A member of the RNA family "terC RNA" from Aureimonas glaciei, 61 nucleotides long. The organism belongs to Aureimonas, within Bacteria.
RNA sequence: CCCCUGGUCCGGGCCCCUCUGGCGAGAGCUGCCGGCUCUUUCGCGAUGUCGGACCGCUUCU
Numbered sequence: 001c002c003c004c005u006g007g008u009c010c011g012g013g014c015c016c017c018u019c020u021g022g023c024g025a026g027a028g029c030u031g032c033c034g035g036c037u038c039u040u041u042c043g044c045g046a047u048g049u050c051g052g053a054c055c056g057c058u059u060c061u
Stems, first nucleotide, its partner, number of pairs: 006055007022044007
Description:
The family's RNA type in Rfam is cis-regulatory element.